[Rfam]
RNA sequence: CCACUGCGUGGCGCGGCUACCCUUGACUUGUCAGGGUGGUUUACGUCAGGCUACAGCGGGGGGGACAUUUAUCACAGCGUGUCCCGGGCUCGACCCCGCAUGUUACUCCUGUGCCUACUCCUACUCUCCGUAGGGGUAGGCAUCUUCCUGCUCCCUGCCCGAUAGGCAGGGAGCCUA
Numbered sequence: 001c002c003a004c005u006g007c008g009u010g011g012c013g014c015g016g017c018u019a020c021c022c023u024u025g026a027c028u029u030g031u032c033a034g035g036g037u038g039g040u041u042u043a044c045g046u047c048a049g050g051c052u053a054c055a056g057c058g059g060g061g062g063g064g065a066c067a068u069u070u071a072u073c074a075c076a077g078c079g080u081g082u083c084c085c086g087g088g089c090u091c092g093a094c095c096c097c098g099c100a101u102g103u104u105a106c107u108c109c110u111g112u113g114c115c116u117a118c119u120c121c122u123a124c125u126c127u128c129c130g131u132a133g134g135g136g137u138a139g140g141c142a143u144c145u146u147c148c149u150g151c152u153c154c155c156u157g158c159c160c161g162a163u164a165g166g167c168a169g170g171g172a173g174c175c176u177a
Stems, first nucleotide, its partner, number of pairs: 006051002009048005016041001018039001021036006056099006062085006112142013150174008159165001